Shown here is a 120-nucleotide RNA from Bacillus thermotolerans, a member of the family "epsC RNA".
The match comes from Rfam's covariance-model search (115 bits).
The family has 30 seed sequences and 450 matches in Rfam 15.1.
RNA sequence: UGGUAAUGUCUCCUCACCAUUAUCAAUGGAGGCACUCGGCUGCACUGUGGGUUUGCACGAGGAAGUAAGCCUUAGACGCCAGUCGUCGAUAGUGUGGUGUGAGGGCGGGUUAGAUGCCCG
Numbered sequence: 001u002g003g004u005a006a007u008g009u010c011u012c013c014u015c016a017c018c019a020u021u022a023u024c025a026a027u028g029g030a031g032g033c034a035c036u037c038g039g040c041u042g043c044a045c046u047g048u049g050g051g052u053u054u055g056c057a058c059g060a061g062g063a064a065g066u067a068a069g070c071c072u073u074a075g076a077c078g079c080c081a082g083u084c085g086u087c088g089a090u091a092g093u094g095u096g097g098u099g100u101g102a103g104g105g106c107g108g109g110u111u112a113g114a115u116g117c118c119c120g
Stems, first nucleotide, its partner, number of pairs: 001019004007034007035103004039098008049072008075087004106120005